This 110-nucleotide RNA from Musa balbisiana belongs to the Rfam family "Plastid-psbA-1 3UTR RNA".
The family is grouped with related families in Rfam's "Plastid-psbA 3UTR RNA clan".
The family's RNA type in Rfam is cis-regulatory element.
RNA sequence: UCGAAGUUUCAUCGACAAAUAUAAGAUUUUGUCUUAGUUUAUACGAAUCGUUGAAACAAGUAGCAAUACCCCAUGUCUUGCUUUGAGCAGACAUGGGGUAUUGCUACUUU
Numbered sequence: 001u002c003g004a005a006g007u008u009u010c011a012u013c014g015a016c017a018a019a020u021a022u023a024a025g026a027u028u029u030u031g032u033c034u035u036a037g038u039u040u041a042u043a044c045g046a047a048u049c050g051u052u053g054a055a056a057c058a059a060g061u062a063g064c065a066a067u068a069c070c071c072c073a074u075g076u077c078u079u080g081c082u083u084u085g086a087g088c089a090g091a092c093a094u095g096g097g098g099u100a101u102u103g104c105u106a107c108u109u110u
Stems, first nucleotide, its partner, number of pairs: 008021001011020002058109012071096003075092004